[Rfam]
RNA: mir-983 microRNA precursor family
Organism: Drosophila melanogaster
RNA sequence: UAUAUUGCAAUAAUUAAAUAAUACGUUUCGAACUAAUGAUUUUCAGUUCAUUCAUUAGGUAGUUACGCAUUAUCUAGUUGUUGUAAACAU
Numbered sequence: 001u002a003u004a005u006u007g008c009a010a011u012a013a014u015u016a017a018a019u020a021a022u023a024c025g026u027u028u029c030g031a032a033c034u035a036a037u038g039a040u041u042u043u044c045a046g047u048u049c050a051u052u053c054a055u056u057a058g059g060u061a062g063u064u065a066c067g068c069a070u071u072a073u074c075u076a077g078u079u080g081u082u083g084u085a086a087a088c089a090u
Stems, first nucleotide, its partner, number of pairs: 005086012018073005024067003029062001033058007